[Rfam]
RNA sequence: ACCGAAAAAGGCAAAUCCGCCGCGAGACGGAGACGCAAAGCUACCGGGACCCACGAGGUCGGCCGAGUUACCGAAA
Numbered sequence: 001a002c003c004g005a006a007a008a009a010g011g012c013a014a015a016u017c018c019g020c021c022g023c024g025a026g027a028c029g030g031a032g033a034c035g036c037a038a039a040g041c042u043a044c045c046g047g048g049a050c051c052c053a054c055g056a057g058g059u060c061g062g063c064c065g066a067g068u069u070a071c072c073g074a075a076a
Base pairs, nucleotide, nucleotide: 003073004072011036012035016031017030018029019028021026034062039069040068041067042066045065046064047063048060049059050058
Rfam assigns this 76-nucleotide RNA sequence from Deinococcus deserti to the family "c-di-GMP-I-GGC riboswitch aptamer".
A search with the family's covariance model found it, with a score of 62 bits.
A reference for the family is Kulshina et al. (2009), "Recognition of the bacterial second messenger cyclic diguanylate by its cognate riboswitch", Nat Struct Mol Biol.
Taxonomically the source falls in Deinococcus deserti (Bacteria, Deinococcota, Deinococci, Deinococcus).
Gene Ontology term of the family: cyclic-di-GMP binding.